[Rfam]
RNA sequence: GAUGGUCCAAGAGAGCUUCCUUCAGCCCACUCAUGGAGGAGAAUUGGGGUUGAAUUAGCUGCCGACUCAUUCAUCCAACCACUAGUAGAAAGGAUUUGUUUUGUGCUACUGUGAUUGAGUGAAUGAUGCGGGAGAUAGUUUUCUAUCCUUCUCUUUCCUUGCUUGGACUGAAGGGAGCUCCUUUUCCCCAUUGU
Numbered sequence: 001g002a003u004g005g006u007c008c009a010a011g012a013g014a015g016c017u018u019c020c021u022u023c024a025g026c027c028c029a030c031u032c033a034u035g036g037a038g039g040a041g042a043a044u045u046g047g048g049g050u051u052g053a054a055u056u057a058g059c060u061g062c063c064g065a066c067u068c069a070u071u072c073a074u075c076c077a078a079c080c081a082c083u084a085g086u087a088g089a090a091a092g093g094a095u096u097u098g099u100u101u102u103g104u105g106c107u108a109c110u111g112u113g114a115u116u117g118a119g120u121g122a123a124u125g126a127u128g129c130g131g132g133a134g135a136u137a138g139u140u141u142u143c144u145a146u147c148c149u150u151c152u153c154u155u156u157c158c159u160u161g162c163u164u165g166g167a168c169u170g171a172a173g174g175g176a177g178c179u180c181c182u183u184u185u186c187c188c189c190a191u192u193g194u
Stems, first nucleotide, its partner, number of pairs: 013180008023170003027166003036157001059134002062131003068125004076117001

This 194-nucleotide sequence from Anisodus acutangulus belongs to the Rfam family "MIR159 microRNA precursor family". On this family, see Jones-Rhoades and Bartel, Mol Cell 2004: "Computational identification of plant microRNAs and their targets, including a stress-induced miRNA". The family has 66 seed sequences and 3,649 matches in Rfam 15.1. The match comes from Rfam's covariance-model search (150 bits).